Rfam assigns this 135-nucleotide RNA to the family "RtT RNA". It scores 51 bits against the family's covariance model. From the family's description: This family represents a bacterial cis-regulatory element known as RtT RNA. The exact function of RtT is unknown although it is thought that it may be involved in changing the cellular response in relation to amino acid starvation. For this family Rfam cites "A novel RNA product of the tyrT operon of Escherichia coli" (Bosl and Kersten, Nucleic Acids Res, 1991). The base pairs follow the family's consensus structure, which is taken from published work.
RNA sequence: UUGGCCCAAAGGGUGAGUCUCAGGACGAGACGAGUAGCCUGCAGCAGGUUCGAGUCGAACGUAGUGAGACAACGGAGCCGUUUGCGACGACGGCCCGAAGGGCGAGCACAGCGAGUCAUCCUGCACGACCCACCA
Numbered sequence: 001u002u003g004g005c006c007c008a009a010a011g012g013g014u015g016a017g018u019c020u021c022a023g024g025a026c027g028a029g030a031c032g033a034g035u036a037g038c039c040u041g042c043a044g045c046a047g048g049u050u051c052g053a054g055u056c057g058a059a060c061g062u063a064g065u066g067a068g069a070c071a072a073c074g075g076a077g078c079c080g081u082u083u084g085c086g087a088c089g090a091c092g093g094c095c096c097g098a099a100g101g102g103c104g105a106g107c108a109c110a111g112c113g114a115g116u117c118a119u120c121c122u123g124c125a126c127g128a129c130c131c132a133c134c135a
Stems, first nucleotide, its partner, number of pairs: 015126001017124001021123004037103001039102002049099004056066002073092002079089003